This 220-nucleotide RNA from Agrilus planipennis belongs to the Rfam family "R2 RNA element". Rfam's curators write: This family represents the 3' UTR region of the R2 retrotransposable element. This family is known to interact with the R2-encoded reverse transcriptase in a reaction known as target primed reverse transcription (TPRT). Gene Ontology term of the family: regulation of reverse transcription. A reference for the family is Ruschak et al. (2004), "Secondary structure models of the 3' untranslated regions of diverse R2 RNAs", RNA. Lineage of the source: Eukaryota > Dicondylia > Buprestoidea > Agrilinae > Agrilus. It scores 45 bits against the family's covariance model.

RNA sequence: AAUUACUGAACUUUGUGGGAUUCAAAAAUAUUCGGCAAGUCCAUAAGAAUAUCGACUCGUCUAAAUAAAGAGGCUGAAGAGGACCCUAGUUGGUCCUAGAACGGCCUGAGGUAGAGGGGUUUUAGUCGGUAGGUCCGAGGACUUCUUCCUCGGGAAUCCGACGCUACCCAGUCCUACGGGCGGCUGGGUGUCUUUUGAAGAUUUCCCCUCUUCCACGAAA
Dot-bracket structure: ............................(((((.............))))).....((((.................................................((.((.(((......(((((....((((((((.....))))))))...))))).(.(((((..............))))))..............)))..)).))))))..
Numbered sequence: 001a002a003u004u005a006c007u008g009a010a011c012u013u014u015g016u017g018g019g020a021u022u023c024a025a026a027a028a029u030a031u032u033c034g035g036c037a038a039g040u041c042c043a044u045a046a047g048a049a050u051a052u053c054g055a056c057u058c059g060u061c062u063a064a065a066u067a068a069a070g071a072g073g074c075u076g077a078a079g080a081g082g083a084c085c086c087u088a089g090u091u092g093g094u095c096c097u098a099g100a101a102c103g104g105c106c107u108g109a110g111g112u113a114g115a116g117g118g119g120u121u122u123u124a125g126u127c128g129g130u131a132g133g134u135c136c137g138a139g140g141a142c143u144u145c146u147u148c149c150u151c152g153g154g155a156a157u158c159c160g161a162c163g164c165u166a167c168c169c170a171g172u173c174c175u176a177c178g179g180g181c182g183g184c185u186g187g188g189u190g191u192c193u194u195u196u197g198a199a200g201a202u203u204u205c206c207c208c209u210c211u212u213c214c215a216c217g218a219a220a
Stems, first nucleotide, its partner, number of pairs: 029051005057218004110214002113211002116207003125162005134154008164190001166189005